A member of the RNA family "raiA RNA" from Clostridium kluyveri, 206 nucleotides long. It is one of the family's seed sequences. The family's RNA type in Rfam is riboswitch. The source organism's lineage runs through Bacteria, Bacillota, Clostridia, Clostridium and Clostridium kluyveri.
RNA sequence: UUGAGUUAGGUUUGUGGUUGAAAAUCGAGGCCAGUCGCAGGCAAAACGAUCCACGUAAGUUAAAUAAAAUAUUUAAUGAGCAUGGUGCGGCUUAGAAGUAAGUCCUGCCGUAAAAUUACGAGAGAAUUAAUAGUGAGAGGGUAAUUCCGGGUAGUGAACGUUCCAGCAGGCGAGUGUGGGGGCAAAGACCAGGUCAACUAACUUAG
Numbered sequence: 001u002u003g004a005g006u007u008a009g010g011u012u013u014g015u016g017g018u019u020g021a022a023a024a025u026c027g028a029g030g031c032c033a034g035u036c037g038c039a040g041g042c043a044a045a046a047c048g049a050u051c052c053a054c055g056u057a058a059g060u061u062a063a064a065u066a067a068a069a070u071a072u073u074u075a076a077u078g079a080g081c082a083u084g085g086u087g088c089g090g091c092u093u094a095g096a097a098g099u100a101a102g103u104c105c106u107g108c109c110g111u112a113a114a115a116u117u118a119c120g121a122g123a124g125a126a127u128u129a130a131u132a133g134u135g136a137g138a139g140g141g142u143a144a145u146u147c148c149g150g151g152u153a154g155u156g157a158a159c160g161u162u163c164c165a166g167c168a169g170g171c172g173a174g175u176g177u178g179g180g181g182g183c184a185a186a187g188a189c190c191a192g193g194u195c196a197a198c199u200a201a202c203u204u205a206g
Base pairs, nucleotide, nucleotide: 001206002205003204004203005202006201007200008199009198012197013196014195015191016190017189018188019187028177030175031041033092034091035090036089037088038087039086050085051084058077060075062073063072083184104170105169106168107167108166109120110119111118112117124163125162126161127160133155134154139148140147141146